[Rfam]
RNA sequence: UGAUAGCGAUGAAACGAGAGGUUGCUGCUUAUGAUAAGCAGGUUAUUCCGCGGAGCGAAUGUCAAGUUAGGAAACUGGCGACAA
Numbered sequence: 001u002g003a004u005a006g007c008g009a010u011g012a013a014a015c016g017a018g019a020g021g022u023u024g025c026u027g028c029u030u031a032u033g034a035u036a037a038g039c040a041g042g043u044u045a046u047u048c049c050g051c052g053g054a055g056c057g058a059a060u061g062u063c064a065a066g067u068u069a070g071g072a073a074a075c076u077g078g079c080g081a082c083a084a
Stems, first nucleotide, its partner, number of pairs: 015050002018048003021044001025041005060083004066079004
RNA: S10-Clostridia ribosomal protein leader